[Rfam]
Rfam assigns this 186-nucleotide RNA from Grantiella picta to the family "U2 spliceosomal RNA". Its Rfam clan is "U2 clan". Lineage of the source: Eukaryota > Vertebrata > Sarcopterygii > Neoaves > Grantiella. The family's consensus secondary structure is taken from published work. It scores 65 bits against the family's covariance model. The family has 208 seed sequences and 71,512 matches in Rfam 15.1. Rfam describes the family as follows. U2 is a small nuclear RNA (snRNA) component of the spliceosome (involved in pre-mRNA splicing).
RNA sequence: AGAGCUUUUCAGCUUUUUGGGAAAGCUCAAGUGUAGUGUGUUCUUACCAGCUUCUUGUCUGAUAAGUGGCUACAAGGAGUCACUGUUCAAUCACAUUGUGGAGAGAGGAGGUGCUUUGGGAGCUUGCUGCAGCCACUUCACACAUUGCCCUGGUAUGGCAAUACCUCCUGGUGCUCUGUUAGCCCU
Number, nucleotide and partner (000 for none) at each position: 001a000002g000003a000004g000005c000006u000007u000008u025009u024010c000011a000012g000013c020014u019015u000016u000017u000018u000019g014020g013021g000022a000023a000024a009025g008026c000027u000028c000029a000030a000031g000032u000033g000034u000035a000036g000037u000038g000039u000040g000041u000042u000043c000044u000045u064046a063047c000048c061049a060050g059051c000052u000053u000054c000055u000056u000057g000058u000059c050060u049061g048062a000063u046064a045065a000066g083067u082068g081069g080070c079071u078072a000073c077074a000075a000076g000077g073078a071079g070080u069081c068082a067083c066084u000085g000086u000087u000088c000089a000090a000091u000092c000093a000094c000095a000096u000097u000098g000099u000100g000101g000102a000103g000104a000105g000106a000107g139108g138109a137110g136111g000112u000113g133114c132115u000116u000117u000118g000119g130120g000121a128122g127123c000124u000125u000126g000127c122128u121129g000130c119131a000132g114133c113134c000135a000136c110137u109138u108139c107140a000141c000142a179143c178144a177145u000146u000147g174148c000149c171150c170151u000152g168153g167154u000155a000156u000157g000158g000159c000160a000161a000162u000163a000164c000165c000166u000167c153168c152169u000170g150171g149172u000173g000174c147175u000176c000177u144178g143179u142180u000181a000182g000183c000184c000185c000186u000